[Rfam]
RNA sequence: CGAGUUGGCCGGGCGGCCGCGAGGGUGCACAGCCUUCGAGGAAAGUCCGGACUCCACAGGGCAGGGUGGUUGUCAACGGCAACCCGGGGCGACCCGCGGGACAGUGCCACAGAAAACAGACCGCCCCGGCUUCCGGCCGGGGUAAGGGUGAAACGGUGGUGUAAGAGACCACCAGCAUCCCGGGUGACCGGGAUGGCUCGGUAAACCCCACCCGGAGCAAGGCCAAGAGGACACCCCAGGGUGUCUGCGCAGGCGAUCGAGGGCGGCCCGCCCGAUGCCUGCGGGUAGGCUGCUCGAGCCUGCCGGCGACGGCAGGCCUAGAUGGAUGGUCGCCACCGCGACGCCGAGAGGUGGCGCGGUACAGAAUCCGGCUUACACGCCAACUCGUCCG
Numbered sequence: 001c002g003a004g005u006u007g008g009c010c011g012g013g014c015g016g017c018c019g020c021g022a023g024g025g026u027g028c029a030c031a032g033c034c035u036u037c038g039a040g041g042a043a044a045g046u047c048c049g050g051a052c053u054c055c056a057c058a059g060g061g062c063a064g065g066g067u068g069g070u071u072g073u074c075a076a077c078g079g080c081a082a083c084c085c086g087g088g089g090c091g092a093c094c095c096g097c098g099g100g101a102c103a104g105u106g107c108c109a110c111a112g113a114a115a116a117c118a119g120a121c122c123g124c125c126c127c128g129g130c131u132u133c134c135g136g137c138c139g140g141g142g143u144a145a146g147g148g149u150g151a152a153a154c155g156g157u158g159g160u161g162u163a164a165g166a167g168a169c170c171a172c173c174a175g176c177a178u179c180c181c182g183g184g185u186g187a188c189c190g191g192g193a194u195g196g197c198u199c200g201g202u203a204a205a206c207c208c209c210a211c212c213c214g215g216a217g218c219a220a221g222g223c224c225a226a227g228a229g230g231a232c233a234c235c236c237c238a239g240g241g242u243g244u245c246u247g248c249g250c251a252g253g254c255g256a257u258c259g260a261g262g263g264c265g266g267c268c269c270g271c272c273c274g275a276u277g278c279c280u281g282c283g284g285g286u287a288g289g290c291u292g293c294u295c296g297a298g299c300c301u302g303c304c305g306g307c308g309a310c311g312g313c314a315g316g317c318c319u320a321g322a323u324g325g326a327u328g329g330u331c332g333c334c335a336c337c338g339c340g341a342c343g344c345c346g347a348g349a350g351g352u353g354g355c356g357c358g359g360u361a362c363a364g365a366a367u368c369c370g371g372c373u374u375a376c377a378c379g380c381c382a383a384c385u386c387g388u389c390c391g
Stems, first nucleotide, its partner, number of pairs: 001387009011376001012334007020038007043374003047371005052217004059269004064213005069083005084098001085096004099208002104206002106202003121147002123143009155173006175197001176195008221291004249282006261273004298317008
RNA: Bacterial RNase P class A